[Rfam]
RNA sequence: UGUAAACAUCCCCGACUGGAAGCUGUGCUACGCGGAAAACGAGCUUUCAGUUGGAUGUUUGCUGU
Number, nucleotide and partner (000 for none) at each position: 001u000002g062003u061004a060005a059006a058007c057008a056009u055010c054011c053012c000013c000014g000015a051016c050017u049018g048019g047020a046021a045022g044023c043024u042025g000026u000027g000028c000029u000030a000031c000032g000033c000034g000035g000036a000037a000038a000039a000040c000041g000042a024043g023044c022045u021046u020047u019048c018049a017050g016051u015052u000053g011054g010055a009056u008057g007058u006059u005060u004061g003062c002063u000064g000065u000
Shown here is a 65-nucleotide RNA sequence from Ictalurus punctatus, a member of the family "mir-30 microRNA precursor family". Rfam's curators put it in the seed alignment. The family's consensus secondary structure was predicted with PFOLD. Its family is annotated with gene silencing by miRNA and RISC complex in the Gene Ontology. About the family: This family consists of the mammalian microRNA (miRNA) precursor mir-30a. Animal miRNAs are transcribed as ~70nt precursors and subsequently processed by the Dicer enzyme to give a ~22nt product. In this case the mature sequence comes from both the 3' (miR-30) and 5' (mir-97-6) arms of the precursor. The extents of the hairpin precursors are not generally known and are estimated based on hairpin prediction.